[Rfam]
RNA sequence: AUCGGCAUUGCUGAUGAGCGUCGGGCUAUUCGAUGUUCGCAACUGCCGCUUUCGCUUCCUACCUUUGACCACGGAUGUACUGGCACCGGUGAAUGAAGCGACGAUGAGGAAGGUCGGUGCAAUUUUGCCCGGCCUUUUUUCAUU
Numbered sequence: 001a002u003c004g005g006c007a008u009u010g011c012u013g014a015u016g017a018g019c020g021u022c023g024g025g026c027u028a029u030u031c032g033a034u035g036u037u038c039g040c041a042a043c044u045g046c047c048g049c050u051u052u053c054g055c056u057u058c059c060u061a062c063c064u065u066u067g068a069c070c071a072c073g074g075a076u077g078u079a080c081u082g083g084c085a086c087c088g089g090u091g092a093a094u095g096a097a098g099c100g101a102c103g104a105u106g107a108g109g110a111a112g113g114u115c116g117g118u119g120c121a122a123u124u125u126u127g128c129c130c131g132g133c134c135u136u137u138u139u140u141c142a143u144u
Stems, first nucleotide, its partner, number of pairs: 003048004008042002016038005052101006060091004066085002069083003104143005109137009119128003

Rfam assigns this 144-nucleotide RNA sequence from Rhizobium sp. Leaf306 to the family "Alphaproteobacterial sRNA ar35". The organism belongs to Rhizobium, within Bacteria. A reference for the family is del Val et al. (2012), "A survey of sRNA families in alpha-proteobacteria", RNA Biol. Rfam 15.1 lists 266 matches to the family in 153 species.